[Rfam]
RNA sequence: UUAUACCCGCUUAAUUCAUUCAGAUCUGUAAUAGAACUGUCAUUCAACCCCAAAAAUCUAGUGCUGAUAUAACCUUCACCAAUUAGGUUCAAAUAAGUGGUAAUGCGGGACAAAAGACUAUCGACAUUUGAUACACUAUUUAUCAAUGGAUGUCUUAUUUUUUUU
Numbered sequence: 001u002u003a004u005a006c007c008c009g010c011u012u013a014a015u016u017c018a019u020u021c022a023g024a025u026c027u028g029u030a031a032u033a034g035a036a037c038u039g040u041c042a043u044u045c046a047a048c049c050c051c052a053a054a055a056a057u058c059u060a061g062u063g064c065u066g067a068u069a070u071a072a073c074c075u076u077c078a079c080c081a082a083u084u085a086g087g088u089u090c091a092a093a094u095a096a097g098u099g100g101u102a103a104u105g106c107g108g109g110a111c112a113a114a115a116g117a118c119u120a121u122c123g124a125c126a127u128u129u130g131a132u133a134c135a136c137u138a139u140u141u142a143u144c145a146a147u148g149g150a151u152g153u154c155u156u157a158u159u160u161u162u163u164u165u
Stems, first nucleotide, its partner, number of pairs: 006109005012103001021039003025035003071089001073087003079100003083096002114156005120151003125148002128146006